[Rfam]
RNA sequence: GGCCAGUUCGAAGGUUGUGAGUUAUCUCAAUUGAUUGUUCACAGUCACAUACAGGUCGAACUCCUCAUUCUACUCCAUCUCCCCUUCUCACUACUGCACUUGACUAGUCAAAA
Numbered sequence: 001g002g003c004c005a006g007u008u009c010g011a012a013g014g015u016u017g018u019g020a021g022u023u024a025u026c027u028c029a030a031u032u033g034a035u036u037g038u039u040c041a042c043a044g045u046c047a048c049a050u051a052c053a054g055g056u057c058g059a060a061c062u063c064c065u066c067a068u069u070c071u072a073c074u075c076c077a078u079c080u081c082c083c084c085u086u087c088u089c090a091c092u093a094c095u096g097c098a099c100u101u102g103a104c105u106a107g108u109c110a111a112a113a
Stems, first nucleotide, its partner, number of pairs: 001109003005105004010101002014097002017091005044074001047071001

Background:
Rfam assigns this 113-nucleotide sequence from Prolemur simus to the family "Y RNA". The organism belongs to Prolemur, within Eukaryota. The family's consensus secondary structure is taken from published work.